[Rfam]
RNA sequence: UUAACUGAAACGCCGAAUCCAACAGGUACGGAGUAACAUUUUACGGGGUGAAAAGCGUAAGCGCUAGGUUUAGCCUUAACCCUGUCCCGUUAGCUAACUCCGGAGGCGAGAAAGGCGGACAA
Numbered sequence: 001u002u003a004a005c006u007g008a009a010a011c012g013c014c015g016a017a018u019c020c021a022a023c024a025g026g027u028a029c030g031g032a033g034u035a036a037c038a039u040u041u042u043a044c045g046g047g048g049u050g051a052a053a054a055g056c057g058u059a060a061g062c063g064c065u066a067g068g069u070u071u072a073g074c075c076u077u078a079a080c081c082c083u084g085u086c087c088c089g090u091u092a093g094c095u096a097a098c099u100c101c102g103g104a105g106g107c108g109a110g111a112a113a114g115g116c117g118g119a120c121a122a
Base pairs, nucleotide, nucleotide: 011108012107013106014105019026020025029102030101031100032099033098046088047087048086054065055064056063057062067082068081070079
Source information:
The record is a 122-nucleotide RNA from Anaerosporomusa subterranea, which matches "c-di-AMP riboswitch aptamer (ydaO/yuaA leader)" in Rfam. The source organism's lineage runs through Bacteria, Bacillati, Bacillota, Acetonemataceae and Anaerosporomusa.